[Rfam]
RNA: RAGATH-18 RNA
Organism: Clostridium pasteurianum
RNA sequence: CCCUUGGAGUGUCAUAUCAAACGAAAGUAGUGUAUUCUUUUAGAAUUACAAAAUCGGACACAUUGAACGGGGAA
Numbered sequence: 001c002c003c004u005u006g007g008a009g010u011g012u013c014a015u016a017u018c019a020a021a022c023g024a025a026a027g028u029a030g031u032g033u034a035u036u037c038u039u040u041u042a043g044a045a046u047u048a049c050a051a052a053a054u055c056g057g058a059c060a061c062a063u064u065g066a067a068c069g070g071g072g073a074a
Stems, first nucleotide, its partner, number of pairs: 001072004009061005022056003030049003035045002